Rfam assigns this 277-nucleotide RNA sequence from Phyllostomus discolor to the family "RNase MRP".
It scores 204 bits against the family's covariance model.
The base pairs follow the family's consensus structure, which is taken from published work.
Rfam links the family to the GO terms ribonuclease MRP activity, ribonuclease MRP complex and rRNA processing.
About the family: RNase MRP is an enzymatically active ribonucleoprotein with two distinct roles in eukaryotes.
[Rfam]
RNA sequence: GCCCGUGCUGAAGGCCUGUUUCCUAGGCUACAACCGGAGGACUGAGUUCCUUAUUUGCGCCUAGGGGAAAGUCCCCGGACCCCCGGCAGAGAGUGCCACGUGCGCACGCACGUAGACCCUCCCUGCUUCUCACUGUUAUACCCGCCAAGAAGCCUUCUCGCUCCGGCGGGGUAGCUGAGCGGAGUGUGGCAGGGAGUGUCGUCCGUCAGCUGUUAAUAGUUACACAGGCAGUGCGCCCUGUACGCACCAACCACACGGGGCUCAUUCUCAGUGCGGC
Numbered sequence: 001g002c003c004c005g006u007g008c009u010g011a012a013g014g015c016c017u018g019u020u021u022c023c024u025a026g027g028c029u030a031c032a033a034c035c036g037g038a039g040g041a042c043u044g045a046g047u048u049c050c051u052u053a054u055u056u057g058c059g060c061c062u063a064g065g066g067g068a069a070a071g072u073c074c075c076c077g078g079a080c081c082c083c084c085g086g087c088a089g090a091g092a093g094u095g096c097c098a099c100g101u102g103c104g105c106a107c108g109c110a111c112g113u114a115g116a117c118c119c120u121c122c123c124u125g126c127u128u129c130u131c132a133c134u135g136u137u138a139u140a141c142c143c144g145c146c147a148a149g150a151a152g153c154c155u156u157c158u159c160g161c162u163c164c165g166g167c168g169g170g171g172u173a174g175c176u177g178a179g180c181g182g183a184g185u186g187u188g189g190c191a192g193g194g195a196g197u198g199u200c201g202u203c204c205g206u207c208a209g210c211u212g213u214u215a216a217u218a219g220u221u222a223c224a225c226a227g228g229c230a231g232u233g234c235g236c237c238c239u240g241u242a243c244g245c246a247c248c249a250a251c252c253a254c255a256c257g258g259g260g261c262u263c264a265u266u267c268u269c270a271g272u273g274c275g276g277c
Stems, first nucleotide, its partner, number of pairs: 003276009014229006022065007037052005070262002073260004085097004098113006115200003121194006131186003142182004166175002168172001231247005